[Rfam]
RNA sequence: AGGGGUAAAACCCCUCGCCUACGUAAGCGUUAUUACGCCC
Numbered sequence: 001a002g003g004g005g006u007a008a009a010a011c012c013c014c015u016c017g018c019c020u021a022c023g024u025a026a027g028c029g030u031u032a033u034u035a036c037g038c039c040c
Base pairs, nucleotide, nucleotide: 016029017028018027022037023036024035025034026033
Annotation: The family of this 40-nucleotide RNA sequence from Tobravirus capsici is "Pseudoknot of tRNA-like structure". The family's consensus secondary structure is taken from published work. Lineage of the source: Viruses > Orthornavirae > Alsuviricetes > Virgaviridae > Tobravirus capsici. The family's RNA type in Rfam is cis-regulatory element.